mir-1233 microRNA precursor family: an 82-nucleotide RNA sequence from Macaca fascicularis. The family's consensus secondary structure was predicted with RNAalifold.
[Rfam]
RNA sequence: GUGAGCAGGAGGCCAGGGCAUGGCAGUGGGAACUGCAGGGCCAUCAGAGGGGCCUCAGCGUCUGAGCCCUGUCCUCCCACAG
Numbered sequence: 001g002u003g004a005g006c007a008g009g010a011g012g013c014c015a016g017g018g019c020a021u022g023g024c025a026g027u028g029g030g031a032a033c034u035g036c037a038g039g040g041c042c043a044u045c046a047g048a049g050g051g052g053c054c055u056c057a058g059c060g061u062c063u064g065a066g067c068c069c070u071g072u073c074c075u076c077c078c079a080c081a082g
Base pairs, nucleotide, nucleotide: 005080008077009076010075011074012073014071015070016069017068018067019066028063029062030061033058034057035056038055039054040053041052042051
Rfam links the family to the GO terms RISC complex and miRNA-mediated post-transcriptional gene silencing.